c-di-GMP-II-GAG riboswitch aptamer: a 94-nucleotide RNA. Its family is annotated with regulation of gene expression and cyclic-di-GMP binding in the Gene Ontology. The family is grouped with related families in Rfam's "c-di-GMP_II riboswitch clan".
RNA sequence: CGCAACGGUAGAGGCCUCGAUCCUCGCCCCAUUAGAACGCGCGGCACCCGACCGGGGGCGGGAGGAGCCAGUGGUGCGACCGGCUACCUCUAGG
Numbered sequence: 001c002g003c004a005a006c007g008g009u010a011g012a013g014g015c016c017u018c019g020a021u022c023c024u025c026g027c028c029c030c031a032u033u034a035g036a037a038c039g040c041g042c043g044g045c046a047c048c049c050g051a052c053c054g055g056g057g058g059c060g061g062g063a064g065g066a067g068c069c070a071g072u073g074g075u076g077c078g079a080c081c082g083g084c085u086a087c088c089u090c091u092a093g094g
Stems, first nucleotide, its partner, number of pairs: 001094001004091001007088005013069003023062007043080001044077005